[Rfam]
RNA sequence: UGGUACCUGACGGGAACGACCGUAUAGUACGAGAGGAACUACGGUUGGUGGCCACUGGUGUACCGGUUGUUCGAGAGAGCAUUGCCGGGCAGCCACGCCACACGGGGUAACGGCUGAACGCAUCUAAGCCGGAAACCCACCUGGAAAAGAGGUACCGCUGAGGUCGCUCGUAGAAGACGAGUUCGAUAGACUCGGGGUGUACGCACCGAGGUAACGAGGUGUUUAGCCCGCGAGAACUAACUGACCGAAG
Number, nucleotide and partner (000 for none) at each position: 001u157002g156003g155004u154005a153006c152007c151008u150009g000010a000011c143012g142013g141014g140015a000016a000017c047018g046019a045020c044021c043022g042023u041024a040025u000026a000027g000028u000029a000030c000031g000032a000033g000034a000035g000036g000037a000038a000039c000040u024041a023042c022043g021044g020045u019046u018047g017048g101049u100050g099051g098052c097053c000054a000055c000056u095057g094058g093059u000060g000061u000062a000063c088064c087065g086066g085067u084068u081069g080070u079071u078072c077073g000074a000075g000076a000077g072078a071079g070080c069081a068082u000083u000084g067085c066086c065087g064088g063089g000090c000091a000092g000093c058094c057095a056096c000097g052098c051099c050100a049101c048102a000103c000104g138105g137106g136107g000108u000109a000110a000111c131112g130113g129114c128115u127116g000117a000118a000119c000120g000121c000122a000123u000124c000125u000126a000127a115128g114129c113130c112131g111132g000133a000134a000135a000136c106137c105138c104139a000140c014141c013142u012143g011144g000145a000146a000147a000148a000149g000150a008151g007152g006153u005154a004155c003156c002157g001158c000159u000160g000161a000162g246163g245164u244165c243166g182167c181168u180169c179170g178171u000172a000173g000174a000175a000176g000177a000178c170179g169180a168181g167182u166183u000184c000185g000186a000187u239188a238189g237190a000191c234192u233193c232194g231195g229196g228197g227198u000199g000200u000201a000202c000203g222204c221205a220206c219207c218208g000209a000210g215211g000212u000213a000214a000215c210216g000217a000218g207219g206220u205221g204222u203223u000224u000225a000226g000227c197228c196229c195230g000231c194232g193233a192234g191235a000236a000237c189238u188239a187240a000241c000242u000243g165244a164245c163246c162247g000248a000249a000250g000
Rfam assigns this 250-nucleotide part of an RNA from Halorhabdus utahensis to the family "Archaeal large subunit ribosomal RNA". The match comes from Rfam's covariance-model search (2873 bits). The base pairs follow the family's consensus structure, which is taken from published work.